Background: The family of this 89-nucleotide sequence from Streptomyces dysideae is "sodF sRNA". Its family is annotated with mRNA binding, regulation of mRNA stability and negative regulation of translation in the Gene Ontology. Lineage of the source: Bacteria > Bacillati > Actinomycetota > Actinomycetes > Streptomyces. A reference for the family is Kim et al. (2014), "Inverse regulation of Fe- and Ni-containing SOD genes by a Fur family regulator Nur through small RNA processed from 3'UTR of the sodF mRNA", Nucleic Acids Res. The family's RNA type in Rfam is small RNA.
RNA sequence: GCGUCCUGCUCGUGACCGUCUUCUCACCUUCACGGGGCAGGCGGAUAAAGAGAAGGCCCUCGCGAGGACGUGACUCGCGAGGGCCUUCC
Numbered sequence: 001g002c003g004u005c006c007u008g009c010u011c012g013u014g015a016c017c018g019u020c021u022u023c024u025c026a027c028c029u030u031c032a033c034g035g036g037g038c039a040g041g042c043g044g045a046u047a048a049a050g051a052g053a054a055g056g057c058c059c060u061c062g063c064g065a066g067g068a069c070g071u072g073a074c075u076c077g078c079g080a081g082g083g084c085c086u087u088c089c
Stems, first nucleotide, its partner, number of pairs: 002043002005041007012033004018027002052088015